This 215-nucleotide sequence from Acidithiobacillus caldus belongs to the Rfam family "Group II catalytic intron D1-D4-6". Taxonomically the source falls in Acidithiobacillus caldus (Bacteria, Pseudomonadati, Acidithiobacillales, Acidithiobacillaceae). For this family Rfam cites "The ins and outs of group II introns" (Bonen and Vogel, Trends Genet, 2001). The pairing is the family consensus, mapped onto this sequence. About the family: Group II introns are found in rRNA, tRNA and mRNA of organelles in fungi, plants and protists, and also in mRNA in bacteria.

RNA sequence: CGACGCCCUCCCGGCCAAAGGCGGAGCCCGUCGGCCAGAGGCGAGUCUUGCCUGGGGCCGGUAACGGACCUCUUGAAGCGUAGACGGCGGGCACUAUCGACGUGUGGUAGCCGCGAAAUCAUGAUCGCCGAAGUCUUCAUCGUGUUGGGUGUGGGGACAGCAUCGGAACGCCCGUUAUGGCCAGGGCGUUGCGAUUCGACUGGGGUCUCGGAGCA
Numbered sequence: 001c002g003a004c005g006c007c008c009u010c011c012c013g014g015c016c017a018a019a020g021g022c023g024g025a026g027c028c029c030g031u032c033g034g035c036c037a038g039a040g041g042c043g044a045g046u047c048u049u050g051c052c053u054g055g056g057g058c059c060g061g062u063a064a065c066g067g068a069c070c071u072c073u074u075g076a077a078g079c080g081u082a083g084a085c086g087g088c089g090g091g092c093a094c095u096a097u098c099g100a101c102g103u104g105u106g107g108u109a110g111c112c113g114c115g116a117a118a119u120c121a122u123g124a125u126c127g128c129c130g131a132a133g134u135c136u137u138c139a140u141c142g143u144g145u146u147g148g149g150u151g152u153g154g155g156g157a158c159a160g161c162a163u164c165g166g167a168a169c170g171c172c173c174g175u176u177a178u179g180g181c182c183a184g185g186g187c188g189u190u191g192c193g194a195u196u197c198g199a200c201u202g203g204g205g206u207c208u209c210g211g212a213g214c215a
Base pairs, nucleotide, nucleotide: 013036016034020032021031022030023029026181027180041088042087045085046084047083048082049080050079051075054072055070056069058067059066060065107209110206111205112204114202115201127200129198130197131196132195133158134157135156138153139152140151163194164193165192167190168189169188170187171186172185173184